[Rfam]
The family of this 49-nucleotide sequence from Pan troglodytes is "mir-320 microRNA precursor family". Lineage of the source: Eukaryota > Metazoa > Chordata > Euteleostomi > Pan.

Nucleotides: 049
Base pairs, nucleotide, nucleotide: 001046002045003044004043005042008039009038010037011036012035016031017030018029019028020027021026
Number, partner (000 for none) and nucleotide at each position: 001046u002045u003044c004043u005042c006000u007000u008039u009038c010037c011036a012035g013000u014000u015000c016031u017030u018029c019028c020027c021026a022000g023000a024000a025000u026021u027020g028019g029018g030017a031016a032000a033000a034000g035012c036011u037010g038009g039008g040000u041000u042005g043004a044003g045002a046001g047000g048000g049000u